Shown here is a 75-nucleotide sequence from Microcebus murinus, a member of the family "mir-320 microRNA precursor family".
The literature on the family includes a 2006 paper in Genome Res by Berezikov et al., "Many novel mammalian microRNA candidates identified by extensive cloning and RAKE analysis".
The match comes from Rfam's covariance-model search (70 bits).
The family's consensus secondary structure was predicted with RNAalifold.
RNA sequence: CUGCAAUAAGACUUUCUCUUCUCAGUUCUUCUGGAAUCAGGAAAAGCUGGGUUGAGAAGGCAAAAAAAAAGAAUU
Numbered sequence: 001c002u003g004c005a006a007u008a009a010g011a012c013u014u015u016c017u018c019u020u021c022u023c024a025g026u027u028c029u030u031c032u033g034g035a036a037u038c039a040g041g042a043a044a045a046g047c048u049g050g051g052u053u054g055a056g057a058a059g060g061c062a063a064a065a066a067a068a069a070a071g072a073a074u075u
Stems, first nucleotide, its partner, number of pairs: 014058005021051005029043003032039002